MIR8024 microRNA precursor family: an 86-nucleotide sequence from Solanum tuberosum. Rfam 15.1 lists 661 matches to the family in 8 species. Rfam links the family to the GO terms miRNA-mediated post-transcriptional gene silencing and RISC complex. The family's consensus secondary structure was predicted with RNAalifold.

[Rfam]
RNA sequence: UUGAAGGACUUGAAGACUUCAACUUGCAUACUUAGAGGAGUUGAAAACUUCAACUUUCAUACUUGGAGGAUUUGAAGACUUCAACU
Numbered sequence: 001u002u003g004a005a006g007g008a009c010u011u012g013a014a015g016a017c018u019u020c021a022a023c024u025u026g027c028a029u030a031c032u033u034a035g036a037g038g039a040g041u042u043g044a045a046a047a048c049u050u051c052a053a054c055u056u057u058c059a060u061a062c063u064u065g066g067a068g069g070a071u072u073u074g075a076a077g078a079c080u081u082c083a084a085c086u
Base pairs, nucleotide, nucleotide: 001084002083003082004081005080006079010075011074012073013072014071017068018067019066020065021064025059026058028056032053033052035050036049037048